RNA sequence: GUAAUGCUUUAGGGGUAUUCUGAAAAGAAUUGAGAGAGUCCCUUUGAACCUGAUACGGCUAACACCGACGUAGGGAAAAGCAAUAAGUCAUUC
Numbered sequence: 001g002u003a004a005u006g007c008u009u010u011a012g013g014g015g016u017a018u019u020c021u022g023a024a025a026a027g028a029a030u031u032g033a034g035a036g037a038g039u040c041c042c043u044u045u046g047a048a049c050c051u052g053a054u055a056c057g058g059c060u061a062a063c064a065c066c067g068a069c070g071u072a073g074g075g076a077a078a079a080g081c082a083a084u085a086a087g088u089c090a091u092u093c
Stems, first nucleotide, its partner, number of pairs: 006081005011043004016037001017030005049074004056067003
RNA: TPP riboswitch aptamer (THI element)